RNA sequence: GGGCCAUGGCAGGGGACUACGGCCUCAAGGCUGAGGAAACUCCGACCUCCAAACUCAAAGAGAGCUCCGUCAUGGGGCAAGGGGAGAUCCCUUGGCUACUACACAGAAACGAAGCCGCUUAGCUCUAGAUGAAGAUGAACCGAUCCUCAGGCAUGUAAAUGCUAGAGGUAGGCGAGAUGAGCUAAAGUGGCUUGAAACGGUAGACCUCUCUGGAGCAAGUAGGAGGGAUAUGAGUGGAGUUCGAUCCCUCUAAUAACGCAAAGCCAAAUUCCCCAGAUACAGAAGUCGGGUUAUUACCAUGGCCC
Numbered sequence: 001g002g003g004c005c006a007u008g009g010c011a012g013g014g015g016a017c018u019a020c021g022g023c024c025u026c027a028a029g030g031c032u033g034a035g036g037a038a039a040c041u042c043c044g045a046c047c048u049c050c051a052a053a054c055u056c057a058a059a060g061a062g063a064g065c066u067c068c069g070u071c072a073u074g075g076g077g078c079a080a081g082g083g084g085a086g087a088u089c090c091c092u093u094g095g096c097u098a099c100u101a102c103a104c105a106g107a108a109a110c111g112a113a114g115c116c117g118c119u120u121a122g123c124u125c126u127a128g129a130u131g132a133a134g135a136u137g138a139a140c141c142g143a144u145c146c147u148c149a150g151g152c153a154u155g156u157a158a159a160u161g162c163u164a165g166a167g168g169u170a171g172g173c174g175a176g177a178u179g180a181g182c183u184a185a186a187g188u189g190g191c192u193u194g195a196a197a198c199g200g201u202a203g204a205c206c207u208c209u210c211u212g213g214a215g216c217a218a219g220u221a222g223g224a225g226g227g228a229u230a231u232g233a234g235u236g237g238a239g240u241u242c243g244a245u246c247c248c249u250c251u252a253a254u255a256a257c258g259c260a261a262a263g264c265c266a267a268a269u270u271c272c273c274c275a276g277a278u279a280c281a282g283a284a285g286u287c288g289g290g291u292u293a294u295u296a297c298c299a300u301g302g303c304c305c
Base pairs, nucleotide, nucleotide: 001305002304003303005301006300007299008298009297011294012274013273014272015271016270020033021032022031023030024029038292039291040290042289043288044287045286046285047215048214049213050212053241055239059211060210061209062208063207064078065077066076067075068074079093080092081091082090083089094206095205099203100202101201102200114191115190116189119185120184121183122182123181124180140172141171219257220256224249225248226247227246228245